[Rfam]
RNA: Plastid-psbA-1 3UTR RNA
RNA sequence: UUGAAGCUCCAUCUACAAAUGGGUAAGGCCCCCGUCUUAGUGUAUACGAUUUUUUGAAAAUAAAGCAGCAAUACUGCCCCUUGUUCUAUCAAGGGGCAGUAUUGCUACUUUAUU
Numbered sequence: 001u002u003g004a005a006g007c008u009c010c011a012u013c014u015a016c017a018a019a020u021g022g023g024u025a026a027g028g029c030c031c032c033c034g035u036c037u038u039a040g041u042g043u044a045u046a047c048g049a050u051u052u053u054u055u056g057a058a059a060a061u062a063a064a065g066c067a068g069c070a071a072u073a074c075u076g077c078c079c080c081u082u083g084u085u086c087u088a089u090c091a092a093g094g095g096g097c098a099g100u101a102u103u104g105c106u107a108c109u110u111u112a113u114u
Stems, first nucleotide, its partner, number of pairs: 008023005062111004067106008076097007